Small nucleolar RNA Z161/Z228: a 96-nucleotide RNA sequence from Solanum lycopersicum. Gene Ontology terms of the family: RNA processing and nucleolus. The sequence is in the family's curated seed alignment. The family is grouped with related families in Rfam's "SNORD35 clan". It is annotated as a C/D-box small nucleolar RNA.
[Rfam]
RNA sequence: AAGCCGCUUGAUGAUUUUUGGAUAAUAUUCUCACGACGGUCGUCUGAGGUACAUUUAUGUGCCUAACUGAUGAUAGAUCCAAUUUUUCUGAUGGUU
Number, nucleotide and partner (000 for none) at each position: 001a096002a095003g000004c093005c000006g000007c000008u000009u000010g000011a000012u000013g000014a000015u000016u000017u000018u000019u000020g000021g000022a000023u000024a000025a000026u000027a000028u000029u000030c000031u000032c000033a000034c000035g000036a000037c000038g000039g000040u000041c000042g000043u000044c000045u000046g000047a000048g000049g000050u061051a060052c059053a000054u000055u000056u000057a000058u000059g052060u051061g050062c000063c000064u000065a000066a000067c000068u000069g000070a000071u000072g000073a000074u000075a000076g000077a000078u000079c000080c000081a000082a000083u000084u000085u000086u000087u000088c000089u000090g000091a000092u000093g004094g000095u002096u001